[Rfam]
Nucleotides: 080
Stems, first nucleotide, its partner, number of pairs: 001080002004077004009072002012069005018063003022059007032051002
Number, partner (000 for none) and nucleotide at each position: 001080c002079a003000u004077c005076a006075g007074u008000c009072u010071g011000u012069c013068g014067g015066a016065a017000u018063c019062a020061u021000c022059u023058c024057u025056g026055c027054a028053c029000u030000g031000a032051c033050u034000a035000g036000g037000c038000u039000c040000u041000c042000u043000g044000g045000c046000g047000a048000u049000c050033a051032g052000u053028g054027u055026g056025c057024g058023g059022a060000a061020a062019u063018g064000c065016u066015u067014c068013u069012g070000c071010c072009a073000c074007a075006c076005u077004g078000g079002u080001g

Overview
Shown here is an 80-nucleotide RNA sequence from Scleropages formosus, a member of the family "mir-147 microRNA precursor family". Rfam links the family to the GO terms miRNA-mediated post-transcriptional gene silencing and RISC complex. For this family Rfam cites "MicroRNA transcriptome in the newborn mouse ovaries determined by massive parallel sequencing" (Ahn et al., Mol Hum Reprod, 2010). Lineage of the source: Eukaryota > Eumetazoa > Teleostomi > Osteoglossomorpha > Scleropages.